[Rfam]
RNA sequence: ACCGCUGAGCCAUCUCUCCAGCCCUGGUUUUUACUUCUGUGGAUUUAAUAAAAACUUCACGGGGCUGGAGAGAUGGCUCAGCGGU
Numbered sequence: 001a002c003c004g005c006u007g008a009g010c011c012a013u014c015u016c017u018c019c020a021g022c023c024c025u026g027g028u029u030u031u032u033a034c035u036u037c038u039g040u041g042g043a044u045u046u047a048a049u050a051a052a053a054a055c056u057u058c059a060c061g062g063g064g065c066u067g068g069a070g071a072g073a074u075g076g077c078u079c080a081g082c083g084g085u
Stems, first nucleotide, its partner, number of pairs: 002084025
The record is an 85-nucleotide RNA from Microtus ochrogaster, which matches "mir-3473 microRNA precursor family" in Rfam. The organism belongs to Microtus, within Eukaryota.